The record is a 137-nucleotide RNA sequence from Chanos chanos, which matches "Small nucleolar RNA SNORA84" in Rfam.
The family's consensus secondary structure was predicted with WAR.
A search with the family's covariance model found it, with a score of 57 bits.
On this family, see Marker et al., Curr Biol 2002: "Experimental RNomics: identification of 140 candidates for small non-messenger RNAs in the plant Arabidopsis thaliana".

[Rfam]
RNA sequence: GCCUGGUGGUUCCUGGAGACAGCUAACCCAUGCUGAUCAAUAGGUUUUUGAUCAACAGGCGUAAAUUGAUCUCUGCGAUUCAAUGCAUGGGCGCUGCUUGUCUGUGUGGCGUCCAUAGCCCGGUUUCAGAGACACUG
Numbered sequence: 001g002c003c004u005g006g007u008g009g010u011u012c013c014u015g016g017a018g019a020c021a022g023c024u025a026a027c028c029c030a031u032g033c034u035g036a037u038c039a040a041u042a043g044g045u046u047u048u049u050g051a052u053c054a055a056c057a058g059g060c061g062u063a064a065a066u067u068g069a070u071c072u073c074u075g076c077g078a079u080u081c082a083a084u085g086c087a088u089g090g091g092c093g094c095u096g097c098u099u100g101u102c103u104g105u106g107u108g109g110c111g112u113c114c115a116u117a118g119c120c121c122g123g124u125u126u127c128a129g130a131g132a133c134a135c136u137g
Base pairs, nucleotide, nucleotide: 001060002059003058004057007051008048012044013043014042015041020035021034022033023032073129075127077125078124079123080122085119086118087116088115089114090113092111093110094109095108096107097106